[Rfam]
RNA: MIR398 microRNA precursor family
RNA sequence: AGGGAUCCUGCAGGGGCGAGCUGGGAACACACGGAUGGAUGUAAUGUCAGGGCUGCUGCUGAUGACGCGGUCUAGCCCGUGUGUUCUCAGGUCGCCCCUGUCGGGGCUCU
Numbered sequence: 001a002g003g004g005a006u007c008c009u010g011c012a013g014g015g016g017c018g019a020g021c022u023g024g025g026a027a028c029a030c031a032c033g034g035a036u037g038g039a040u041g042u043a044a045u046g047u048c049a050g051g052g053c054u055g056c057u058g059c060u061g062a063u064g065a066c067g068c069g070g071u072c073u074a075g076c077c078c079g080u081g082u083g084u085u086c087u088c089a090g091g092u093c094g095c096c097c098c099u100g101u102c103g104g105g106g107c108u109c110u
Stems, first nucleotide, its partner, number of pairs: 007104002011100004016095004023088012